A member of the RNA family "mir-19 microRNA precursor family" from Callorhinchus milii, 77 nucleotides long. The family's consensus secondary structure was predicted with RNAalifold. Its Rfam clan is "mir-19 clan". On this family, see Mourelatos et al., Genes Dev 2002: "miRNPs: a novel class of ribonucleoproteins containing numerous microRNAs". It scores 57 bits against the family's covariance model.
[Rfam]
RNA sequence: GGCUCCAGUCAGCUUUGCUGGGUUGCAGCCAGCCUGUCCGACACGCUGUGCAAACCCACGCAGAACUGACUGUGGCU
Numbered sequence: 001g002g003c004u005c006c007a008g009u010c011a012g013c014u015u016u017g018c019u020g021g022g023u024u025g026c027a028g029c030c031a032g033c034c035u036g037u038c039c040g041a042c043a044c045g046c047u048g049u050g051c052a053a054a055c056c057c058a059c060g061c062a063g064a065a066c067u068g069a070c071u072g073u074g075g076c077u
Stems, first nucleotide, its partner, number of pairs: 003075002006072007014064005020057002023053005031047003